The record is a 242-nucleotide sequence from Tupaia belangeri, which matches "Voltage-gated potassium-channel Kv1.4 IRES" in Rfam. By type it is an internal ribosome entry site. This family represents the Kv1.4 voltage-gated potassium-channel internal ribosome entry site (IRES). This region has been shown to mediate internal ribosome entry in cells derived from brain, heart, and skeletal muscle, tissues known to express Kv1.4 mRNA species. Rfam links the family to the GO term ribosome binding. A search with the family's covariance model found it, with a score of 230 bits. For this family Rfam cites "Structurally distinct elements mediate internal ribosome entry within the 5'-noncoding region of a voltage-gated potassium channel mRNA" (Jang et al., J Biol Chem, 2004).

[Rfam]
Nucleotides: 242
Base pairs, nucleotide, nucleotide: 033225035223036222053202054201055200056199057198058197059196061195062194063193064192066189067188068187069186070185071184072183073182075181076180077179080176081175082174088138089137090136091135095133096132097131102130103129104128105127106126109124110123154172155171156170157169158168159167
Number, partner (000 for none) and nucleotide at each position: 001000g002000a003000g004000g005000c006000u007000a008000u009000u010000g011000g012000u013000g014000g015000c016000c017000a018000g019000c020000a021000g022000c023000c024000u025000u026000c027000g028000c029000u030000c031000u032000a033225g034000a035223g036222a037000g038000c039000a040000a041000u042000g043000c044000u045000g046000g047000a048000u049000c050000c051000c052000c053202g054201g055200g056199a057198a058197g059196a060000a061195a062194g063193a064192g065000c066189a067188u068187g069186g070185g071184g072183u073182g074000u075181g076180c077179u078000g079000a080176u081175u082174u083000a084000a085000a086000a087000a088138c089137a090136g091135a092000a093000a094000a095133u096132g097131c098000a099000a100000a101000c102130u103129u104128g105127g106126a107000c108000u109124g110123a111000a112000a113000a114000u115000a116000u117000c118000c119000u120000u121000c122000g123110u124109c125000u126106u127105c128104c129103a130102a131097g132096c133095a134000a135091u136090c137089u138088g139000c140000u141000g142000a143000a144000g145000g146000g147000u148000u149000c150000c151000a152000a153000a154172c155171u156170u157169a158168c159167c160000u161000u162000a163000a164000u165000u166000u167159g168158g169157u170156g171155a172154g173000a174082a175081a176080a177000g178000a179077a180076g181075c182073u183072g184071c185070c186069c187068u188067a189066u190000u191000u192064u193063u194062c195061u196059u197058c198057u199056u200055c201054u202053u203000c204000u205000a206000c207000a208000a209000c210000u211000g212000g213000a214000a215000g216000c217000a218000g219000c220000c221000a222036u223035u224000c225033c226000c227000c228000c229000g230000a231000g232000c233000c234000a235000c236000c237000a238000c239000c240000a241000u242000g